A member of the RNA family "Plastid-ycf3 group II-D1 intron" from Pyrus ussuriensis x Pyrus communis, 47 nucleotides long.
Lineage of the source: Eukaryota > Tracheophyta > Mesangiospermae > fabids > Pyrus.
Gene Ontology term of the family: Group II intron splicing.
Rfam describes the family as follows. Plastid rpl16 is a non-coding RNA (ncRNA) recognised in plastids. It was recognised in and intronic region of a ribosome rpl16 gene.
RNA sequence: AACCCUUCUGUCGUGUAUCCCCGAUUAAUGUAGCCUCAGAUGCUACA
Numbered sequence: 001a002a003c004c005c006u007u008c009u010g011u012c013g014u015g016u017a018u019c020c021c022c023g024a025u026u027a028a029u030g031u032a033g034c035c036u037c038a039g040a041u042g043c044u045a046c047a
Stems, first nucleotide, its partner, number of pairs: 010025004032044003